c-di-AMP riboswitch aptamer (ydaO/yuaA leader): a 135-nucleotide sequence from Actinomadura sp. KC345. A search with the family's covariance model found it, with a score of 90 bits.
RNA sequence: GCGGCCGGUGCGCCGAAUCUCCCGCGUACGGGAGAGCCGGGGACCCACGUCCCUGGGGUGAAUCGACGCGAGUCGUAGGGCGGCUCCUGGCCCGAACCCGUCAGCUAACCCGGCAGGCGCGCGAGGAGAGGAGAA
Numbered sequence: 001g002c003g004g005c006c007g008g009u010g011c012g013c014c015g016a017a018u019c020u021c022c023c024g025c026g027u028a029c030g031g032g033a034g035a036g037c038c039g040g041g042g043a044c045c046c047a048c049g050u051c052c053c054u055g056g057g058g059u060g061a062a063u064c065g066a067c068g069c070g071a072g073u074c075g076u077a078g079g080g081c082g083g084c085u086c087c088u089g090g091c092c093c094g095a096a097c098c099c100g101u102c103a104g105c106u107a108a109c110c111c112g113g114c115a116g117g118c119g120c121g122c123g124a125g126g127a128g129a130g131g132a133g134a135a
Stems, first nucleotide, its partner, number of pairs: 011119004018035007036114006046055002056099003064075004078093004